[Rfam]
Rfam assigns this 328-nucleotide sequence from Laodelphax striatellus to the family "Arthropod 7SK RNA". The family's RNA type in Rfam is non-coding RNA gene. Clan: 7SK clan. The source organism's lineage runs through Eukaryota, Ecdysozoa, Hexapoda, Auchenorrhyncha and Laodelphax.
RNA sequence: GGAAGUGAGUGUCAAGUGAUGGCACAGUUUGGACAUCGAUCGCUCUUGAUUAGGAAUAGGCAGAUCUGCUCAAUAAUUAGUGUAUCACUAGAAAAUUGACAUCUCGAUUCCCGAAGCGAUCGCAGUGGAUUUCAAUGACUCCAUGAGUUAGCUUGUUGAGUAAUUGAGUUCGGUUGUGAUAACGUUUCUUCGGUCGAAUCGGUGUCUCUGAUCAAUCCGAUUGAUCUCUCAAAAGUUAGUUUACUUUGAUAGUUAGCGGGGGCGCGUUUCCCUUGUAGACACUUCCAUGUAAAACGGCACUGCACGUUGGCAGCUUGCCAUUUUUUUA
Numbered sequence: 001g002g003a004a005g006u007g008a009g010u011g012u013c014a015a016g017u018g019a020u021g022g023c024a025c026a027g028u029u030u031g032g033a034c035a036u037c038g039a040u041c042g043c044u045c046u047u048g049a050u051u052a053g054g055a056a057u058a059g060g061c062a063g064a065u066c067u068g069c070u071c072a073a074u075a076a077u078u079a080g081u082g083u084a085u086c087a088c089u090a091g092a093a094a095a096u097u098g099a100c101a102u103c104u105c106g107a108u109u110c111c112c113g114a115a116g117c118g119a120u121c122g123c124a125g126u127g128g129a130u131u132u133c134a135a136u137g138a139c140u141c142c143a144u145g146a147g148u149u150a151g152c153u154u155g156u157u158g159a160g161u162a163a164u165u166g167a168g169u170u171c172g173g174u175u176g177u178g179a180u181a182a183c184g185u186u187u188c189u190u191c192g193g194u195c196g197a198a199u200c201g202g203u204g205u206c207u208c209u210g211a212u213c214a215a216u217c218c219g220a221u222u223g224a225u226c227u228c229u230c231a232a233a234a235g236u237u238a239g240u241u242u243a244c245u246u247u248g249a250u251a252g253u254u255a256g257c258g259g260g261g262g263c264g265c266g267u268u269u270c271c272c273u274u275g276u277a278g279a280c281a282c283u284u285c286c287a288u289g290u291a292a293a294a295c296g297g298c299a300c301u302g303c304a305c306g307u308u309g310g311c312a313g314c315u316u317g318c319c320a321u322u323u324u325u326u327u328a
Base pairs, nucleotide, nucleotide: 001286002285003284004283005282006281007280016088017087018086019085020084029073030072031071034068035067038066039065040064041063042061043060044059296319297318298317300313301312302311303310